[Rfam]
RNA sequence: GGCACCGUUACAGGUGUCGUAGCAGAAGUAUUCACAUCAUGACCCCUGACAGGCAAUCCCUGGUAAUAGCUGCGAAUUCUGCU
Numbered sequence: 001g002g003c004a005c006c007g008u009u010a011c012a013g014g015u016g017u018c019g020u021a022g023c024a025g026a027a028g029u030a031u032u033c034a035c036a037u038c039a040u041g042a043c044c045c046c047u048g049a050c051a052g053g054c055a056a057u058c059c060c061u062g063g064u065a066a067u068a069g070c071u072g073c074g075a076a077u078u079c080u081g082c083u
Stems, first nucleotide, its partner, number of pairs: 013046002016043003021083007028040002050072003
RNA: Mammalian CPEB3 ribozyme